[Rfam]
RNA sequence: CAACACCAACGCGGGAGCUCGCGCCAUGGCGGGCUGAGAGGGUGACUUGCGUUUCGCAGGCGUCACCGACCGCAUGAACCUGACCGGGUAAUGCCGGCGUAGGGAGUGAAAGUCGUUGACGA
Numbered sequence: 001c002a003a004c005a006c007c008a009a010c011g012c013g014g015g016a017g018c019u020c021g022c023g024c025c026a027u028g029g030c031g032g033g034c035u036g037a038g039a040g041g042g043u044g045a046c047u048u049g050c051g052u053u054u055c056g057c058a059g060g061c062g063u064c065a066c067c068g069a070c071c072g073c074a075u076g077a078a079c080c081u082g083a084c085c086g087g088g089u090a091a092u093g094c095c096g097g098c099g100u101a102g103g104g105a106g107u108g109a110a111a112g113u114c115g116u117u118g119a120c121g122a
Stems, first nucleotide, its partner, number of pairs: 009107002011073004017034005041067005079103004084097004

The record is a 122-nucleotide RNA from Amycolatopsis mediterranei, which matches "TPP riboswitch aptamer (THI element)" in Rfam. For this family Rfam cites "Validating fragment-based drug discovery for biological RNAs: lead fragments bind and remodel the TPP riboswitch specifically" (Warner et al., Chem Biol, 2014). Pairs were carried over by alignment from the consensus structure, which is taken from published work. A search with the family's covariance model found it, with a score of 57 bits.